[Rfam]
RNA sequence: UGCAGACAGGCACAAAAAAAGCAUGUUUUCUGGAAAAGCCACCGGAAAACAUGCUUUUUUGAUCUCUUGACUCGCCAAAAACAUAAGUAAGGAGCCAUUUUUCGAAGGAAAAUGAGCGGAUUACGAAUGUUUUUGAAGAUUGCGUGAGUGCAAAGCACAUAGCAAUCUGGUAUCA
Numbered sequence: 001u002g003c004a005g006a007c008a009g010g011c012a013c014a015a016a017a018a019a020a021g022c023a024u025g026u027u028u029u030c031u032g033g034a035a036a037a038g039c040c041a042c043c044g045g046a047a048a049a050c051a052u053g054c055u056u057u058u059u060u061g062a063u064c065u066c067u068u069g070a071c072u073c074g075c076c077a078a079a080a081a082c083a084u085a086a087g088u089a090a091g092g093a094g095c096c097a098u099u100u101u102u103c104g105a106a107g108g109a110a111a112a113u114g115a116g117c118g119g120a121u122u123a124c125g126a127a128u129g130u131u132u133u134u135g136a137a138g139a140u141u142g143c144g145u146g147a148g149u150g151c152a153a154a155g156c157a158c159a160u161a162g163c164a165a166u167c168u169g170g171u172a173u174c175a
Base pairs, nucleotide, nucleotide: 005174006173010071011069012068015060016059017058018057019056020055021054022053023052024051025050026049027048028047029046030045032043077134078133079132080131081130082129083128084127087124088123089122090121094117095116096114097113098112099111100110101109102108103107137168138167139166140165141164142163143162148158149157150156151155
Rfam assigns this 175-nucleotide RNA sequence from Blautia sp. CAG:37 to the family "Clostridiales-1 RNA". It scores 82 bits against the family's covariance model. The family's RNA type in Rfam is small RNA.